[Rfam]
RNA sequence: CCGCUGGUCCGGGCCCCUCUGGCAAGAGCCUCCGGCGCUCUUGUGAUGUCGGACCGUUUCG
Dot-bracket structure: .....(((((((.........((((((((.......))))))))....)))))))......
Record summary
The record is a 61-nucleotide RNA sequence from Agrobacterium albertimagni, which matches "terC RNA" in Rfam. The match comes from Rfam's covariance-model search (66 bits). The family's RNA type in Rfam is cis-regulatory element.